[Rfam]
RNA sequence: UCUUUCCUUUUAUCAGCAGAUUUGUGCCCAGUGAUCCCUUCAACUGGUGCUUGUCACUUCGUUGUAAGGUUGAUUGCUGAGGCAGCUCGAUAUAUGUGGAGCCAUCUACCUUUACUGGUAAUAUGGUGUCAAUCAUCCAAUCGACAAAUCUCAGACAAACUGGUCCCCAUAAAGCCUGAGUUCGCCUUCACGGGCUUGAGCUCGGUCGACUGGGUGUACUGAAAGGCGUUACAUUCCACUUCUUUGCCGAUGAGGGCCAUUGGUCCAUGAGGUUCGAGACUAACCGUAACUUGCCUACAUUC
Numbered sequence: 001u002c003u004u005u006c007c008u009u010u011u012a013u014c015a016g017c018a019g020a021u022u023u024g025u026g027c028c029c030a031g032u033g034a035u036c037c038c039u040u041c042a043a044c045u046g047g048u049g050c051u052u053g054u055c056a057c058u059u060c061g062u063u064g065u066a067a068g069g070u071u072g073a074u075u076g077c078u079g080a081g082g083c084a085g086c087u088c089g090a091u092a093u094a095u096g097u098g099g100a101g102c103c104a105u106c107u108a109c110c111u112u113u114a115c116u117g118g119u120a121a122u123a124u125g126g127u128g129u130c131a132a133u134c135a136u137c138c139a140a141u142c143g144a145c146a147a148a149u150c151u152c153a154g155a156c157a158a159a160c161u162g163g164u165c166c167c168c169a170u171a172a173a174g175c176c177u178g179a180g181u182u183c184g185c186c187u188u189c190a191c192g193g194g195c196u197u198g199a200g201c202u203c204g205g206u207c208g209a210c211u212g213g214g215u216g217u218a219c220u221g222a223a224a225g226g227c228g229u230u231a232c233a234u235u236c237c238a239c240u241u242c243u244u245u246g247c248c249g250a251u252g253a254g255g256g257c258c259a260u261u262g263g264u265c266c267a268u269g270a271g272g273u274u275c276g277a278g279a280c281u282a283a284c285c286g287u288a289a290c291u292u293g294c295c296u297a298c299a300u301u302c
Base pairs, nucleotide, nucleotide: 018151019150020149021148022147023146024145025144026083027082028081029079030078031077033075034074035073036072037069038068039067040066042063043062046058047057048056049055091143093140097131098130099129101127102126103125104124105123162220163219164218174206175205176204178203179202180201181200182199183198184195185194186193187192225295226294227293228290229289230288231287232286241279242278243277246273247272248271255265256264257263258262
This 302-nucleotide sequence from Oidiodendron maius belongs to the Rfam family "A. fumigatus sRNA Afu_309".
By type it is a small RNA.
The match comes from Rfam's covariance-model search (132 bits).
For this family Rfam cites "Small ncRNA transcriptome analysis from Aspergillus fumigatus suggests a novel mechanism for regulation of protein synthesis" (Jochl et al., Nucleic Acids Res, 2008).